[Rfam]
RNA sequence: UUUCAUACAGUAGGCGUAAAAGAACUGUAUAAACUACUUUAGGGACGCAACCCCGUAAAAAGCGUA
Numbered sequence: 001u002u003u004c005a006u007a008c009a010g011u012a013g014g015c016g017u018a019a020a021a022g023a024a025c026u027g028u029a030u031a032a033a034c035u036a037c038u039u040u041a042g043g044g045a046c047g048c049a050a051c052c053c054c055g056u057a058a059a060a061a062g063c064g065u066a
Stems, first nucleotide, its partner, number of pairs: 001016001003014002008027004042054003
Background:
The family of this 66-nucleotide RNA sequence is "GP20-b RNA". The family's consensus secondary structure is taken from published work. Rfam's curators put it in the seed alignment. It is annotated as a cis-regulatory element.